Record summary: mir-7563 microRNA precursor family: a 76-nucleotide RNA sequence from Ameiurus melas. The organism belongs to Ameiurus, within Eukaryota. A search with the family's covariance model found it, with a score of 80 bits. The family's consensus secondary structure was predicted with RNAalifold.

RNA sequence: ACCACGUACUUACCUACUAUAUAGUAGGAGAAAUGCAUGUAUCUCUGCUACUAUAUAGAAAGUAAGUACGCAGUUU
Numbered sequence: 001a002c003c004a005c006g007u008a009c010u011u012a013c014c015u016a017c018u019a020u021a022u023a024g025u026a027g028g029a030g031a032a033a034u035g036c037a038u039g040u041a042u043c044u045c046u047g048c049u050a051c052u053a054u055a056u057a058g059a060a061a062g063u064a065a066g067u068a069c070g071c072a073g074u075u076u
Stems, first nucleotide, its partner, number of pairs: 001074002005070009015060001017058011029046003033042003